[Rfam]
RNA sequence: UUCUUAUCAUGAGUGGCGGAGGGACUGGCCCUGUGAAGCCCGGCAACCUCCUUUUAUUAGGAAGGUGCCAAAUCCAGCAAUACUAUAUAGUAUUGAAAGAUAAGAA
Number, nucleotide and partner (000 for none) at each position: 001u106002u105003c104004u103005u102006a101007u100008c099009a000010u000011g000012a000013g041014u000015g040016g039017c038018g000019g000020a000021g031022g030023g029024a000025c077026u076027g075028g074029c023030c022031c021032u000033g000034u000035g000036a000037a000038g017039c016040c015041c013042g069043g068044c067045a066046a000047c065048c064049u062050c061051c060052u059053u000054u000055u000056a000057u000058u000059a052060g051061g050062a049063a000064g048065g047066u045067g044068c043069c042070a000071a000072a000073u098074c028075c027076a026077g025078c095079a094080a093081u092082a091083c090084u000085a000086u000087a000088u000089a000090g083091u082092a081093u080094u079095g078096a000097a000098a073099g008100a007101u006102a005103a004104g003105a002106a001
A member of the RNA family "SAM riboswitch aptamer (S box leader)" from Orenia marismortui, 106 nucleotides long. Rfam describes the family as follows. The SAM riboswitch is found upstream of a number of genes which code for proteins involved in methionine or cysteine biosynthesis in Gram-positive bacteria. The base pairs follow the family's consensus structure, which is taken from published work.